[Rfam]
RNA sequence: AGUGUGAGUAGAAGCGGUCAGUACGGGUUAUCCAUACGGGACAUUGCUCAGUCA
Numbered sequence: 001a002g003u004g005u006g007a008g009u010a011g012a013a014g015c016g017g018u019c020a021g022u023a024c025g026g027g028u029u030a031u032c033c034a035u036a037c038g039g040g041a042c043a044u045u046g047c048u049c050a051g052u053c054a
Stems, first nucleotide, its partner, number of pairs: 005050006015039001018041002021037003025033002
Rfam assigns this 54-nucleotide RNA from Klebsiella pneumoniae to the family "Xanthine riboswitch aptamer (NMT1 RNA)". The literature on the family includes a 2021 paper in Nucleic Acids Res by Xu et al., "Insights into xanthine riboswitch structure and metal ion-mediated ligand recognition". Rfam's curators put it in the seed alignment. The family's consensus secondary structure is taken from published work. The organism belongs to Klebsiella pneumoniae subsp. pneumoniae, within Bacteria. Its family is annotated with purine nucleobase binding in the Gene Ontology.